Glycine riboswitch aptamer: a 91-nucleotide sequence from Nocardioides luteus. The source organism's lineage runs through Bacteria, Bacillati, Actinomycetota, Nocardioidaceae and Nocardioides. About the family: This family represents the bacterial glycine riboswitch. It scores 60 bits against the family's covariance model.
RNA sequence: CCAUCCCGCACGGGAGAGCCCCACUUGCUGGGGCGCCGAAGGGGCAAUUCCUCCCCGGAAACUCUCAGGCACCCACGACUGUGCGGACCAG
Numbered sequence: 001c002c003a004u005c006c007c008g009c010a011c012g013g014g015a016g017a018g019c020c021c022c023a024c025u026u027g028c029u030g031g032g033g034c035g036c037c038g039a040a041g042g043g044g045c046a047a048u049u050c051c052u053c054c055c056c057g058g059a060a061a062c063u064c065u066c067a068g069g070c071a072c073c074c075a076c077g078a079c080u081g082u083g084c085g086g087a088c089c090a091g
Stems, first nucleotide, its partner, number of pairs: 006086008020033003035070003038066002042064003048058002